c-di-GMP-I riboswitch aptamer: an 86-nucleotide RNA sequence from Parasporobacterium paucivorans. Gene Ontology term of the family: cyclic-di-GMP binding.
RNA sequence: UUCAAUAUUUGGCAAAGCCAAUGAAAAUUGGCGACGCAAAGCUAUUAGUCUAAGGCGAUUUUCGCUAUGACCGUAAAGUUGCAAUU
Numbered sequence: 001u002u003c004a005a006u007a008u009u010u011g012g013c014a015a016a017g018c019c020a021a022u023g024a025a026a027a028u029u030g031g032c033g034a035c036g037c038a039a040a041g042c043u044a045u046u047a048g049u050c051u052a053a054g055g056c057g058a059u060u061u062u063c064g065c066u067a068u069g070a071c072c073g074u075a076a077a078g079u080u081g082c083a084a085u086u
Stems, first nucleotide, its partner, number of pairs: 012037002017032006040080004045076003048071003055065004